A member of the RNA family "Rhizobiales sRNA Atu_C8", 121 nucleotides long. The family's RNA type in Rfam is small RNA. For this family Rfam cites "Deep sequencing uncovers numerous small RNAs on all four replicons of the plant pathogen Agrobacterium tumefaciens" (Wilms et al., RNA Biol, 2012).
[Rfam]
RNA sequence: UAUGGCUAAGAAAAUUAUUCUCGUGGUGGGUAAGCGUAUGGGCAGGAUGGUGUAACCAUCCGGCGAAAGCUCCCAUGCGCGAAACACAGGCUCCCUCAGGGGGCCUUUUUUAUUAUCUAAA
Dot-bracket structure: ......(....................)((((.(((((((((..((((((.....)))))).((....)).))))))))).....(.(((((((.....))))))))......))))....
Numbered sequence: 001u002a003u004g005g006c007u008a009a010g011a012a013a014a015u016u017a018u019u020c021u022c023g024u025g026g027u028g029g030g031u032a033a034g035c036g037u038a039u040g041g042g043c044a045g046g047a048u049g050g051u052g053u054a055a056c057c058a059u060c061c062g063g064c065g066a067a068a069g070c071u072c073c074c075a076u077g078c079g080c081g082a083a084a085c086a087c088a089g090g091c092u093c094c095c096u097c098a099g100g101g102g103g104c105c106u107u108u109u110u111u112a113u114u115a116u117c118u119a120a121a
Stems, first nucleotide, its partner, number of pairs: 007028001029117004034080009045061006063070002086107001088106007